The family of this 168-nucleotide RNA sequence from Priestia taiwanensis is "Manganese Mn2+ riboswitch aptamer (yybP-ykoY)".
RNA sequence: AAUAUUUCCAAAGGGGAGUAGCGUCAGGUUCUUAAACCUGAAACAAAGUCGUCAUUUCGUGAAUACUUGUUCACCGGCUUUGUUGACAUAACAGAUGUCUAGCAAGACCUUUGCCGUUUUUCAUGGCAGAGGUCUUUUUUGCGUUCUUUUCUCUGCUGUGGUAAUGGU
Numbered sequence: 001a002a003u004a005u006u007u008c009c010a011a012a013g014g015g016g017a018g019u020a021g022c023g024u025c026a027g028g029u030u031c032u033u034a035a036a037c038c039u040g041a042a043a044c045a046a047a048g049u050c051g052u053c054a055u056u057u058c059g060u061g062a063a064u065a066c067u068u069g070u071u072c073a074c075c076g077g078c079u080u081u082g083u084u085g086a087c088a089u090a091a092c093a094g095a096u097g098u099c100u101a102g103c104a105a106g107a108c109c110u111u112u113g114c115c116g117u118u119u120u121u122c123a124u125g126g127c128a129g130a131g132g133u134c135u136u137u138u139u140u141g142c143g144u145u146c147u148u149u150u151c152u153c154u155g156c157u158g159u160g161g162u163a164a165u166g167g168u
Stems, first nucleotide, its partner, number of pairs: 025040003042084010059074005085168001087166003091162001